[Rfam]
RNA sequence: UUUGCAAGUGAUGAGAAACAAGACAGGGACAUCAGCAUUCCUCAUCAUAUCUUGAGGAUGAUGACUUGGGUCUUUAGGAAUCUCUCUGAUGCUAC
Numbered sequence: 001u002u003u004g005c006a007a008g009u010g011a012u013g014a015g016a017a018a019c020a021a022g023a024c025a026g027g028g029a030c031a032u033c034a035g036c037a038u039u040c041c042u043c044a045u046c047a048u049a050u051c052u053u054g055a056g057g058a059u060g061a062u063g064a065c066u067u068g069g070g071u072c073u074u075u076a077g078g079a080a081u082c083u084c085u086c087u088g089a090u091g092c093u094a095c
Base pairs, nucleotide, nucleotide: 002094004092005091006090
Source information: This 95-nucleotide sequence from Dioscorea zingiberensis belongs to the Rfam family "Small nucleolar RNA R44/J54/Z268 family". The base pairs follow the family's consensus structure, which was predicted with PFOLD. Taxonomically the source falls in Dioscorea (Eukaryota, Viridiplantae, Streptophyta, Embryophyta). Rfam 15.1 lists 1,168 matches to the family in 228 species. Gene Ontology terms of the family: RNA processing and nucleolus.